[Rfam]
RNA: Small Cajal body specific RNA 3
RNA sequence: CACAGAACCUGAAGGAAACAACCAUGUGGACAAAUGAAAAAGGCCUUUUGUCUACAGAUUGCAGUGAUCCUACAUAAUCAUGGAGGUCUCUGGCUUAGGAAGGCUGGCUAUGCCUGAUGGUUCCCCUCCAUACAGA
Numbered sequence: 001c002a003c004a005g006a007a008c009c010u011g012a013a014g015g016a017a018a019c020a021a022c023c024a025u026g027u028g029g030a031c032a033a034a035u036g037a038a039a040a041a042g043g044c045c046u047u048u049u050g051u052c053u054a055c056a057g058a059u060u061g062c063a064g065u066g067a068u069c070c071u072a073c074a075u076a077a078u079c080a081u082g083g084a085g086g087u088c089u090c091u092g093g094c095u096u097a098g099g100a101a102g103g104c105u106g107g108c109u110a111u112g113c114c115u116g117a118u119g120g121u122u123c124c125c126c127u128c129c130a131u132a133c134a135g136a
Base pairs, nucleotide, nucleotide: 005069006068009064010063011062025056026055027054028053029052030051031050036047037046082129083128084127085126086125090120092114093113094112096110097109098108